[Rfam]
RNA sequence: ACCUGUAACGGGUCUUCACCAGAAGGUUUUCCGUCAUCCCCACACACCUCCCUGUCGCCACCUUAGCAGGAGCCCAGUUCGAGUCUCGUGGUGUUCAAUUUCACUCACUCGGGUAACCAGUGAUGCUGGAUGAACCUAAGCAAUGAAUCCAAUCUUUGACAAGGGAAGAAAUUCUGCAGUCGGGCAUUCACCAUGGGACGGCGGCGCUGGAUUACUCCCGUUUGAGGUUGGGGGGUGUGUGGUGGGCUGGGCGAUCAACUGGUAUU
Numbered sequence: 001a002c003c004u005g006u007a008a009c010g011g012g013u014c015u016u017c018a019c020c021a022g023a024a025g026g027u028u029u030u031c032c033g034u035c036a037u038c039c040c041c042a043c044a045c046a047c048c049u050c051c052c053u054g055u056c057g058c059c060a061c062c063u064u065a066g067c068a069g070g071a072g073c074c075c076a077g078u079u080c081g082a083g084u085c086u087c088g089u090g091g092u093g094u095u096c097a098a099u100u101u102c103a104c105u106c107a108c109u110c111g112g113g114u115a116a117c118c119a120g121u122g123a124u125g126c127u128g129g130a131u132g133a134a135c136c137u138a139a140g141c142a143a144u145g146a147a148u149c150c151a152a153u154c155u156u157u158g159a160c161a162a163g164g165g166a167a168g169a170a171a172u173u174c175u176g177c178a179g180u181c182g183g184g185c186a187u188u189c190a191c192c193a194u195g196g197g198a199c200g201g202c203g204g205c206g207c208u209g210g211a212u213u214a215c216u217c218c219c220g221u222u223u224g225a226g227g228u229u230g231g232g233g234g235g236u237g238u239g240u241g242g243u244g245g246g247c248u249g250g251g252c253g254a255u256c257a258a259c260u261g262g263u264a265u266u
Base pairs, nucleotide, nucleotide: 001013002012003011018263019262020261021260022259025256026255027254028253030251034250035249036248037246038245039244040242041241042240043239044238045237046236047235048234049233050232051231052230061227062226063225065222066221067220069218070217071216072215074210075209076208077207078206079204080203081202083199084198085197086196087195088194089193090192091191094134095133096132098131099130100129101128102125103124105123106122107121108120109119111118112117136140144190145189146188147187148186150184156183157182158181159180160179165174166173167172